[Rfam]
This 80-nucleotide RNA belongs to the Rfam family "int-alpA RNA". Acidobacteria (1 example), Planctomycetes (1 example), Proteobacteria.
RNA sequence: CCAGGGCCUAGCCGUGGCCUCAUGAACCACGGCGAAAAGCCACCUGCCCCUAGCGGCCUGGCCCUGGACGUUUUGAGGGG
Numbered sequence: 001c002c003a004g005g006g007c008c009u010a011g012c013c014g015u016g017g018c019c020u021c022a023u024g025a026a027c028c029a030c031g032g033c034g035a036a037a038a039g040c041c042a043c044c045u046g047c048c049c050c051u052a053g054c055g056g057c058c059u060g061g062c063c064c065u066g067g068a069c070g071u072u073u074u075g076a077g078g079g080g
Stems, first nucleotide, its partner, number of pairs: 001067008011033007039057003043053001047080005